RNA sequence: CAGACUGUUGUCAAUGAUGAAACACAGCUAAACUGAAAUUAAUGAUUUGAUUCAGUUGCUUCGUCACUACCACUGAGACAACAGAUUG
Numbered sequence: 001c002a003g004a005c006u007g008u009u010g011u012c013a014a015u016g017a018u019g020a021a022a023c024a025c026a027g028c029u030a031a032a033c034u035g036a037a038a039u040u041a042a043u044g045a046u047u048u049g050a051u052u053c054a055g056u057u058g059c060u061u062c063g064u065c066a067c068u069a070c071c072a073c074u075g076a077g078a079c080a081a082c083a084g085a086u087u088g
Stems, first nucleotide, its partner, number of pairs: 001088003005084008